[Rfam]
RNA sequence: UUCAACUUUACAACUGAGGAUUGGAAUGAAGGAACCAAGUUUCCUGAAACAAUCCCAUCAAGACUCCUGCGUGCGUCAUGAAUGACAGUUCAUGGGGUUCGAAGCACAGGUAGAGUCGGCAGAAGGAAGACUAGAGCCAUUCCAAUGGAAAAGGUAUGUUAACUGAUAUGCCGGAUGGCUGAAAA
Numbered sequence: 001u002u003c004a005a006c007u008u009u010a011c012a013a014c015u016g017a018g019g020a021u022u023g024g025a026a027u028g029a030a031g032g033a034a035c036c037a038a039g040u041u042u043c044c045u046g047a048a049a050c051a052a053u054c055c056c057a058u059c060a061a062g063a064c065u066c067c068u069g070c071g072u073g074c075g076u077c078a079u080g081a082a083u084g085a086c087a088g089u090u091c092a093u094g095g096g097g098u099u100c101g102a103a104g105c106a107c108a109g110g111u112a113g114a115g116u117c118g119g120c121a122g123a124a125g126g127a128a129g130a131c132u133a134g135a136g137c138c139a140u141u142c143c144a145a146u147g148g149a150a151a152a153g154g155u156a157u158g159u160u161a162a163c164u165g166a167u168a169u170g171c172c173g174g175a176u177g178g179c180u181g182a183a184a185a
Stems, first nucleotide, its partner, number of pairs: 018055006031045002034042001056177004066110004070101002073098002076095008117173005125164002129160002131148003

The family of this 185-nucleotide RNA sequence from Anaerobacillus arseniciselenatis is "Group II catalytic intron D1-D4-5".
Rfam describes the family as follows. Group II introns are found in rRNA, tRNA and mRNA of organelles in fungi, plants and protists, and also in mRNA in bacteria.
A reference for the family is Chu et al. (2001), "Control of branch-site choice by a group II intron", EMBO J.
It scores 94 bits against the family's covariance model.